[Rfam]
RNA: Group II catalytic intron D1-D4-2
RNA sequence: GGAGGUGGGCCCUCCGGGACCGCCCACACAGGGGGAGGUCCUAAACCGCCGCAGGUUGCUCCGGUGAAUGAGCCGGGGUGAUGAGCACUGCGGAAAAGGCGCACAAGAUGCGUCAGGU
Numbered sequence: 001g002g003a004g005g006u007g008g009g010c011c012c013u014c015c016g017g018g019a020c021c022g023c024c025c026a027c028a029c030a031g032g033g034g035g036a037g038g039u040c041c042u043a044a045a046c047c048g049c050c051g052c053a054g055g056u057u058g059c060u061c062c063g064g065u066g067a068a069u070g071a072g073c074c075g076g077g078g079u080g081a082u083g084a085g086c087a088c089u090g091c092g093g094a095a096a097a098g099g100c101g102c103a104c105a106a107g108a109u110g111c112g113u114c115a116g117g118u
Base pairs, nucleotide, nucleotide: 001015002014003013004012005011016042017041018040019039020038021037023035024034025033027032047117049093050092051091052090053089054088055082056081058079059078060077062075063074064073065072098114099113100112101111102110103109